[Rfam]
RNA sequence: GGGGAUGAACUUAGAGUCCCUGGUACGGGAGUGUUAAUAGUGAAGCUUUUGGCCGAGUUUCAUGGUUAGUGAAUC
Numbered sequence: 001g002g003g004g005a006u007g008a009a010c011u012u013a014g015a016g017u018c019c020c021u022g023g024u025a026c027g028g029g030a031g032u033g034u035u036a037a038u039a040g041u042g043a044a045g046c047u048u049u050u051g052g053c054c055g056a057g058u059u060u061c062a063u064g065g066u067u068a069g070u071g072a073a074u075c
Stems, first nucleotide, its partner, number of pairs: 001021006034069005040063009